[Rfam]
Nucleotides: 361
Stems, first nucleotide, its partner, number of pairs: 001357007020330009032318001034316008044303005049064004055074004113134002117130003137174006144165003147161004152189006195221002198218006207237005240276002243272004251264003255295004261289001334350005
Number, partner (000 for none) and nucleotide at each position: 001357g002356g003355g004354g005353a006352c007351g008000u009000u010000c011000u012000g013000g014000a015000u016000u017000c018000g019000a020330c021329a022328g023327g024326a025325a026324u027323a028322g029000g030000u031000c032318g033000a034316g035315c036314u037313u038312a039311a040310g041309u042000g043000g044303c045302g046301a047300g048299c049064c050063g051062a052061g053000g054000u055074g056073g057072c058071g059000a060000a061052c062051u063050c064049g065000u066000u067000a068000a069000a070000a071058c072057g073056c074055c075000a076000u077000c078000g079000c080000c081000a082000a083000u084000a085000a086000c087000u088000g089000g090000c091000a092000a093000a094000g095000a096000a097000a098000a099000c100000a101000a102000c103000a104000a105000c106000u107000u108000c109000g110000c111000a112000u113134u114133a115000g116000c117130u118129g119128c120000c121000u122000a123000a124000g125000c126000u127000a128119g129118c130117a131000a132000a133114u134113g135000c136000g137174g138173u139172u140171c141170c142169g143000c144165c145164c146163u147161c148160c149159a150158u151000c152189g153188c154187c155186c156185a157184u158150g159149u160148g161147g162000u163146a164145g165144g166000u167000g168000u169142c170141g171140g172139g173138a174137c175000u176000c177000a178000c179000u180000u181000u182000u183000a184157g185156u186155g187154g188153g189152c190000u191000a192000c193000g194000c195221c196220u197000c198218u199217c200216a201215c202214c203213c204000u205000c206000c207237g208236u209235c210234u211233g212000u213203g214202g215201g216200u217199g218198a219000a220196g221195g222000a223000a224000g225000a226000g227000a228000u229000u230000u231000a232000u233211c234210a235209g236208a237207c238000u239000a240276g241275c242000c243272u244271u245270a246269c247000g248000g249000a250000a251264g252263c253262c254000u255295g256294u257293c258292g259000c260000u261289g262253g263252g264251c265000u266000g267000a268000a269246g270245u271244a272243a273000c274000g275241g276240c277000g278000a279000a280000a281000u282000g283000c284000g285000a286000a287000u288000a289261c290000a291000g292258u293257g294256a295255c296000u297000a298000c299048g300047c301046u302045c303044g304000u305000a306000g307000a308000a309041g310040c311039u312038u313037a314036a315035g316034u317000a318032c319000u320000c321000g322028u323027u324026a325025u326024u327023u328022c329021u330020g331000g332000a333000c334350g335349u336348g337347g338346g339000u340000u341000c342000g343000a344000u345000u346338c347337c348336c349335a350334c351007c352006g353005u354004c355003u356002c357001c358000a359000u360000u361000u